[Rfam]
RNA sequence: UACUUAUCCAGAAAGACUGAGGGAAAGGCCCUGUGAUGUCUUAGCAACCUGUUGAAUAAUAAGGUGCUAAUUCCUGUCCGCCAAAGGCGGAAGAGAUAAGUU
Numbered sequence: 001u002a003c004u005u006a007u008c009c010a011g012a013a014a015g016a017c018u019g020a021g022g023g024a025a026a027g028g029c030c031c032u033g034u035g036a037u038g039u040c041u042u043a044g045c046a047a048c049c050u051g052u053u054g055a056a057u058a059a060u061a062a063g064g065u066g067c068u069a070a071u072u073c074c075u076g077u078c079c080g081c082c083a084a085a086g087g088c089g090g091a092a093g094a095g096a097u098a099a100g101u102u
Stems, first nucleotide, its partner, number of pairs: 002101007013042005021031003026075003043068004048064002050061004072094001077091006

Description
This 102-nucleotide RNA sequence from Pedobacter steynii belongs to the Rfam family "SAM riboswitch aptamer (S box leader)". Pairs were carried over by alignment from the consensus structure, which is taken from published work. Lineage of the source: Bacteria > Bacteroidota > Sphingobacteriales > Sphingobacteriaceae > Pedobacter.